[Rfam]
RNA sequence: UCAAAACUAGCCAUUUGUUUUCUAAUUGGUUCUUAAUGCGUUAAAAUUUUAUAAGAACCAAUUUGAAAAUAAUAAGUGGCUAGUUUUGA
Numbered sequence: 001u002c003a004a005a006a007c008u009a010g011c012c013a014u015u016u017g018u019u020u021u022c023u024a025a026u027u028g029g030u031u032c033u034u035a036a037u038g039c040g041u042u043a044a045a046a047u048u049u050u051a052u053a054a055g056a057a058c059c060a061a062u063u064u065g066a067a068a069a070u071a072a073u074a075a076g077u078g079g080c081u082a083g084u085u086u087u088g089a
Stems, first nucleotide, its partner, number of pairs: 002088016018069005024063012
This 89-nucleotide RNA sequence from Prunus persica belongs to the Rfam family "MIR6288 microRNA precursor family". A search with the family's covariance model found it, with a score of 82 bits.